[Rfam]
RNA: MIR5565 microRNA precursor family
RNA sequence: GCAUAUGUAUUCAAUUCAAUCCACAUGUGUUGAAGUGGAUUGGAGUUGAAUUGAAUUAAGUUCUAUUUCAAUCCACUCCAACACACGUAGAUUGAGAUGAAUACAUAC
Numbered sequence: 001g002c003a004u005a006u007g008u009a010u011u012c013a014a015u016u017c018a019a020u021c022c023a024c025a026u027g028u029g030u031u032g033a034a035g036u037g038g039a040u041u042g043g044a045g046u047u048g049a050a051u052u053g054a055a056u057u058a059a060g061u062u063c064u065a066u067u068u069c070a071a072u073c074c075a076c077u078c079c080a081a082c083a084c085a086c087g088u089a090g091a092u093u094g095a096g097a098u099g100a101a102u103a104c105a106u107a108c
Stems, first nucleotide, its partner, number of pairs: 004107010016095006023088002026085007035076009045066002